[Rfam]
RNA: mir-2366 microRNA precursor family
RNA sequence: GCCCUGGCCCCAGGGUCCUCUUGUCUGAGCCCCAGAAAGAGGAGAGAGCGCUGGGUCACAGAAGAGGGUCUGGGGGACAGGUU
Numbered sequence: 001g002c003c004c005u006g007g008c009c010c011c012a013g014g015g016u017c018c019u020c021u022u023g024u025c026u027g028a029g030c031c032c033c034a035g036a037a038a039g040a041g042g043a044g045a046g047a048g049c050g051c052u053g054g055g056u057c058a059c060a061g062a063a064g065a066g067g068g069u070c071u072g073g074g075g076g077a078c079a080g081g082u083u
Base pairs, nucleotide, nucleotide: 003081004080005079006078008076009075010074011073013071014070015069016068017067018066019065020064021063024062025061026060027059029057031055032054033053034052035051